[Rfam]
RNA sequence: AUGGAUGUGAUGAUUAUUUCCCCAGAUGAUCGAAGGUGAACAUACUGUGCGAAUUUUGUUUUCCCUUUGGGGAAAAUCAAGCCAAAUAAUCUGAUCCAU
Number, nucleotide and partner (000 for none) at each position: 001a099002u098003g097004g096005a095006u000007g000008u000009g000010a000011u000012g000013a000014u000015u000016a000017u000018u000019u000020c000021c000022c000023c000024a000025g000026a000027u000028g000029a000030u000031c000032g000033a000034a000035g000036g000037u000038g000039a000040a000041c000042a000043u000044a000045c000046u000047g000048u000049g000050c000051g000052a000053a000054u000055u000056u000057u000058g000059u000060u000061u000062u000063c000064c000065c000066u000067u000068u000069g000070g000071g000072g000073a000074a000075a000076a000077u000078c000079a000080a000081g000082c000083c000084a000085a000086a000087u000088a000089a000090u000091c000092u000093g000094a000095u005096c004097c003098a002099u001
RNA: Small nucleolar RNA Z103